The record is an 81-nucleotide sequence from Lupinus albus, which matches "Small nucleolar RNA R160" in Rfam. The source organism's lineage runs through Eukaryota, Magnoliopsida, Mesangiospermae, Papilionoideae and Lupinus. About the family: snoR160 is a C/D box small nucleolar RNA, which acts as a methylation guide for 25S ribosomal RNA in plants. snoR160 has been alternatively named snoZ270 in rice. A reference for the family is Chen et al. (2003), "The high diversity of snoRNAs in plants: identification and comparative study of 120 snoRNA genes from Oryza sativa", Nucleic Acids Res. The match comes from Rfam's covariance-model search (63 bits).
RNA sequence: AGCAAAAUGAUGAUUUCAUUUUGUGUCCGAAACUGAUGUGGAACUAUGUUUUAUACAUGCCUUCAAAGUUCUCUGAUUGCU
Numbered sequence: 001a002g003c004a005a006a007a008u009g010a011u012g013a014u015u016u017c018a019u020u021u022u023g024u025g026u027c028c029g030a031a032a033c034u035g036a037u038g039u040g041g042a043a044c045u046a047u048g049u050u051u052u053a054u055a056c057a058u059g060c061c062u063u064c065a066a067a068g069u070u071c072u073c074u075g076a077u078u079g080c081u
Stems, first nucleotide, its partner, number of pairs: 001081005